A member of the RNA family "Vibrio RNA AS7" from Mycetocola manganoxydans, 169 nucleotides long.
The match comes from Rfam's covariance-model search (101 bits).
The literature on the family includes a 2009 paper in Nucleic Acids Res by Liu et al., "Experimental discovery of sRNAs in Vibrio cholerae by direct cloning, 5S/tRNA depletion and parallel sequencing".
NCBI's taxonomy places the organism under Bacteria, Bacillati, Micrococcales, Microbacteriaceae, Mycetocola.

RNA sequence: GGUGUCUGCAGCAGCAGGCUGUUGCGGUCCUCAAUGACCCCGCCGACGUAGUACGGCAGGCCGCAGUUCGCGAAGGAGACGUAUGGGCCUCGCUCGAAGACGACGAUCUCGGCUGUCUCAUCGAGCCGACGGAGGCGUGUUGCCGCCGACAUUCCGCCGGCGACACCAC
Numbered sequence: 001g002g003u004g005u006c007u008g009c010a011g012c013a014g015c016a017g018g019c020u021g022u023u024g025c026g027g028u029c030c031u032c033a034a035u036g037a038c039c040c041c042g043c044c045g046a047c048g049u050a051g052u053a054c055g056g057c058a059g060g061c062c063g064c065a066g067u068u069c070g071c072g073a074a075g076g077a078g079a080c081g082u083a084u085g086g087g088c089c090u091c092g093c094u095c096g097a098a099g100a101c102g103a104c105g106a107u108c109u110c111g112g113c114u115g116u117c118u119c120a121u122c123g124a125g126c127c128g129a130c131g132g133a134g135g136c137g138u139g140u141u142g143c144c145g146c147c148g149a150c151a152u153u154c155c156g157c158c159g160g161c162g163a164c165a166c167c168a169c
Stems, first nucleotide, its partner, number of pairs: 001167006008161002011025006032056001035053002040048001060071002075155003085146001086144003092140002095137002101131002104128002107125001110123003